Rfam assigns this 261-nucleotide RNA from Shouchella lonarensis to the family "BsrG". The family's RNA type in Rfam is small RNA. Gene Ontology terms of the family: toxin activity and autolysis. From the family's description: bsrE, bsrG and bsrH pair through intermolecular interactions with antisense sRNAs.

[Rfam]
RNA sequence: UAAUAACAUACGGAUUCUCAAGGGUGGCCGGCAAUCCCCGUAAGAAAGGGGGUGCUGCUAUGAGCGUCUUUCAAUCACUUAUGCUGAUGUUUGCAUUUGCUGGUUUAGUCGUCUCAAUUAUUACUUUGGCGCAACGUCAAAAGUAAGCCCACCCUUGAGCCGAGCAAGCUAGCGGGUGGGAAGUAACACCUAUUAAUUUGCCGUCCUCCUUUGUAGAGGGGUCCGGUUAUUGCAGACCGUGGGUGUUCCUAAGCACACGCG
Number, nucleotide and partner (000 for none) at each position: 001u232002a231003a230004u229005a228006a000007c226008a000009u000010a204011c203012g202013g201014a000015u000016u000017c159018u158019c157020a156021a155022g154023g153024g152025u000026g149027g148028c147029c000030g000031g055032c054033a053034a000035u052036c051037c050038c049039c048040g000041u000042a000043a000044g000045a000046a000047a000048g039049g038050g037051g036052g035053u033054g032055c031056u000057g000058c000059u000060a000061u000062g000063a000064g132065c131066g130067u129068c128069u000070u000071u000072c000073a000074a000075u000076c089077a088078c000079u000080u000081a000082u000083g000084c000085u000086g000087a000088u077089g076090u000091u000092u000093g000094c000095a000096u000097u000098u000099g125100c000101u123102g122103g121104u120105u000106u000107a000108g000109u000110c000111g000112u000113c000114u000115c000116a000117a000118u000119u000120a104121u103122u102123a101124c000125u099126u000127u000128g068129g067130c066131g065132c064133a000134a000135c000136g000137u000138c000139a000140a000141a000142a000143g000144u000145a000146a000147g028148c027149c026150c000151a000152c024153c023154c022155u021156u020157g019158a018159g017160c000161c000162g000163a000164g000165c000166a000167a000168g000169c000170u185171a184172g000173c000174g000175g000176g000177u000178g000179g000180g000181a000182a000183g000184u171185a170186a000187c000188a000189c000190c000191u000192a000193u000194u000195a000196a000197u000198u000199u000200g000201c013202c012203g011204u010205c221206c220207u219208c218209c000210u000211u000212u000213g000214u000215a000216g000217a000218g208219g207220g206221g205222u000223c000224c000225g000226g007227u000228u005229a004230u003231u002232g001233c000234a000235g000236a000237c000238c261239g260240u259241g258242g000243g256244u255245g254246u253247u252248c000249c000250u000251a000252a247253g246254c245255a244256c243257a000258c241259g240260c239261g238